[Rfam]
RNA sequence: AUCGAAUACAAAGGGGAGCUCAUGAAAAGUGAGCUGAGAGUAAGCCGUUUGCUUAGACCCAUAACCUGAUUUGGAUAAUGCCAACGUAGGGAUAUAUUUUGCAGAACUA
Numbered sequence: 001a002u003c004g005a006a007u008a009c010a011a012a013g014g015g016g017a018g019c020u021c022a023u024g025a026a027a028a029g030u031g032a033g034c035u036g037a038g039a040g041u042a043a044g045c046c047g048u049u050u051g052c053u054u055a056g057a058c059c060c061a062u063a064a065c066c067u068g069a070u071u072u073g074g075a076u077a078a079u080g081c082c083a084a085c086g087u088a089g090g091g092a093u094a095u096a097u098u099u100u101g102c103a104g105a106a107c108u109a
Stems, first nucleotide, its partner, number of pairs: 006097003010093001013060003018034005041055005065090004071084004
Rfam assigns this 109-nucleotide sequence from Clostridium sp. CT7 to the family "TPP riboswitch aptamer (THI element)".